[Rfam]
Overview
Rfam assigns this 80-nucleotide sequence from Paraburkholderia caballeronis to the family "Burkholderia sRNA 54". Rfam's curators write: Identified by RNA-seq, RACE and Northern blot. Strongly expressed in biofilm. A reference for the family is Sass et al. (2017), "Identification of small RNAs abundant in Burkholderia cenocepacia biofilms reveal putative regulators with a potential role in carbon and iron metabolism", Sci Rep. Rfam classes the family as a small RNA. NCBI's taxonomy places the organism under Bacteria, Pseudomonadati, Pseudomonadota, Burkholderiaceae, Paraburkholderia. A search with the family's covariance model found it, with a score of 85 bits. The family has 4 seed sequences and 91 matches in Rfam 15.1. Pairs were carried over by alignment from the consensus structure, which was predicted with RNAfold.
RNA sequence: CCGACUCUCAGGUUCUAGCACGGCCCUCGGAAUCGCUAGAACUUUUAAGGCGUCACGCUUUCCGCGUGACGCUUUUUUUU
Numbered sequence: 001c002c003g004a005c006u007c008u009c010a011g012g013u014u015c016u017a018g019c020a021c022g023g024c025c026c027u028c029g030g031a032a033u034c035g036c037u038a039g040a041a042c043u044u045u046u047a048a049g050g051c052g053u054c055a056c057g058c059u060u061u062c063c064g065c066g067u068g069a070c071g072c073u074u075u076u077u078u079u080u
Stems, first nucleotide, its partner, number of pairs: 010044010024030002049073010